[Rfam]
RNA sequence: GCAUACAAACAGCCGAAUUUCCGCAAGAAAACGGGGGAACCAUAACGUUGCCGGACAUUAUUUCUUUUGUUCGACAGCAUGGGGUGAAUUUCAGCGAAAUCAGUAUCGUCCGCACGAGCGGCUGCUGAUUCCCGCAGAAUAGGGCUGCCUUUCCAGGCCCGAAUCCGUCAGCUAACCUCGCAGGCUGUAUGGAACAGGACU
Numbered sequence: 001g002c003a004u005a006c007a008a009a010c011a012g013c014c015g016a017a018u019u020u021c022c023g024c025a026a027g028a029a030a031a032c033g034g035g036g037g038a039a040c041c042a043u044a045a046c047g048u049u050g051c052c053g054g055a056c057a058u059u060a061u062u063u064c065u066u067u068u069g070u071u072c073g074a075c076a077g078c079a080u081g082g083g084g085u086g087a088a089u090u091u092c093a094g095c096g097a098a099a100u101c102a103g104u105a106u107c108g109u110c111c112g113c114a115c116g117a118g119c120g121g122c123u124g125c126u127g128a129u130u131c132c133c134g135c136a137g138a139a140u141a142g143g144g145c146u147g148c149c150u151u152u153c154c155a156g157g158c159c160c161g162a163a164u165c166c167g168u169c170a171g172c173u174a175a176c177c178u179c180g181c182a183g184g185c186u187g188u189a190u191g192g193a194a195c196a197g198g199a200c201u
Stems, first nucleotide, its partner, number of pairs: 011186004018030003032180005041081002082166003090139003142160004
RNA: c-di-AMP riboswitch aptamer (ydaO/yuaA leader)